A member of the RNA family "Repression of heat shock gene expression (ROSE) element" from Rhizobium deserti, 93 nucleotides long. The organism belongs to Rhizobium, within Bacteria. About the family: This family represents a 5' UTR cis-regulatory element found in heat shock mRNAs and is known as the ROSE (repression of heat shock gene expression) element. The ROSE element is a negative regulator of heat shock gene expression. The secondary structure is thought to be regulated by temperature. This regulation blocks access to the ribosome binding site under normal conditions. During heat shock however, the structure changes freeing the ribosome binding site and allowing expression to occur. The base pairs follow the family's consensus structure, which is taken from published work. Rfam 15.1 lists 381 matches to the family in 262 species.
RNA sequence: CCGGCAGCCUUGAGGAGGUGCCGGUUGUCGGGGGCGCCGGUUUCCGAGGCGUCCUCAUCCCAUGUUGCUUUACGGAGGAUAUGGCUAUGAGAA
Numbered sequence: 001c002c003g004g005c006a007g008c009c010u011u012g013a014g015g016a017g018g019u020g021c022c023g024g025u026u027g028u029c030g031g032g033g034g035c036g037c038c039g040g041u042u043u044c045c046g047a048g049g050c051g052u053c054c055u056c057a058u059c060c061c062a063u064g065u066u067g068c069u070u071u072a073c074g075g076a077g078g079a080u081a082u083g084g085c086u087a088u089g090a091g092a093a
Base pairs, nucleotide, nucleotide: 001024002023003022004021005020006019008018009017031053032052034050035049038046039045040044054091055090056089057088058087060084061083062082063081064080065079066078068077069076070075